[Rfam]
A member of the RNA family "mir-190 microRNA precursor family" from Rhynchophorus ferrugineus, 77 nucleotides long. The organism belongs to Rhynchophorus, within Eukaryota. The family is grouped with related families in Rfam's "mir-50 clan". The family's consensus secondary structure was predicted with RNAalifold. A search with the family's covariance model found it, with a score of 64 bits.

RNA sequence: AAAGCUACAAGAUAUGUUUGAUAUUCUUGGUUGUUGUUUCGAAAGCACCCAGGAGUCAAACAUAUUAUUAUAGAGUC
Numbered sequence: 001a002a003a004g005c006u007a008c009a010a011g012a013u014a015u016g017u018u019u020g021a022u023a024u025u026c027u028u029g030g031u032u033g034u035u036g037u038u039u040c041g042a043a044a045g046c047a048c049c050c051a052g053g054a055g056u057c058a059a060a061c062a063u064a065u066u067a068u069u070a071u072a073g074a075g076u077c
Stems, first nucleotide, its partner, number of pairs: 005073003009069001011066012024053002029050002032047002